Source information: Shown here is a 100-nucleotide RNA from Dimorphilus gyrociliatus, a member of the family "Vault RNA". The base pairs follow the family's consensus structure, which is taken from published work. Taxonomically the source falls in Dimorphilus (Eukaryota, Metazoa, Protostomia, Dinophilidae).

RNA sequence: GAGCCGGCUUAGCCGAGUGGGUACUUCUUACUUCAAAUACAAAAAGAUUGAAUGAACACUUCGAAUACUUAGUUCCCCACUGGCGCAAACCGACUUUUUU
Numbered sequence: 001g002a003g004c005c006g007g008c009u010u011a012g013c014c015g016a017g018u019g020g021g022u023a024c025u026u027c028u029u030a031c032u033u034c035a036a037a038u039a040c041a042a043a044a045a046g047a048u049u050g051a052a053u054g055a056a057c058a059c060u061u062c063g064a065a066u067a068c069u070u071a072g073u074u075c076c077c078c079a080c081u082g083g084c085g086c087a088a089a090c091c092g093a094c095u096u097u098u099u100u
Stems, first nucleotide, its partner, number of pairs: 002095002005092003012084004017080004027072002
It scores 46 bits against the family's covariance model. It is annotated as a non-coding RNA gene.